Source information:
The record is a 159-nucleotide RNA from Colocasia esculenta, which matches "small nucleolar RNA snoR135" in Rfam. On this family, see Chen and Wu, Nucleic Acids Res 2009: "Mining small RNA sequencing data: a new approach to identify small nucleolar RNAs in Arabidopsis". The base pairs follow the family's consensus structure, which was predicted with RNAalifold.
RNA sequence: GCAGCAGGAUUGUGUGUAUCGGCGUUGUGCGAAUCGAAUGCACAUUUUGCCGAAAGUGUUUCCUGCUACAGAGAUCCUCCCAAGAGGAGGUGGAGGAGGUGGGCAGUUGGGAUUCACAUCUGUUCAUUUGAAUCGCCAACAAUCAUCUUCUCCACAUUC
Numbered sequence: 001g002c003a004g005c006a007g008g009a010u011u012g013u014g015u016g017u018a019u020c021g022g023c024g025u026u027g028u029g030c031g032a033a034u035c036g037a038a039u040g041c042a043c044a045u046u047u048u049g050c051c052g053a054a055a056g057u058g059u060u061u062c063c064u065g066c067u068a069c070a071g072a073g074a075u076c077c078u079c080c081c082a083a084g085a086g087g088a089g090g091u092g093g094a095g096g097a098g099g100u101g102g103g104c105a106g107u108u109g110g111g112a113u114u115c116a117c118a119u120c121u122g123u124u125c126a127u128u129u130g131a132a133u134c135g136c137c138a139a140c141a142a143u144c145a146u147c148u149u150c151u152c153c154a155c156a157u158u159c
Base pairs, nucleotide, nucleotide: 004066005065006064007063008062009060014043015042016041017040018039019038092153093152094151095150096149097148098147099146100145101144102143106140107139108138109137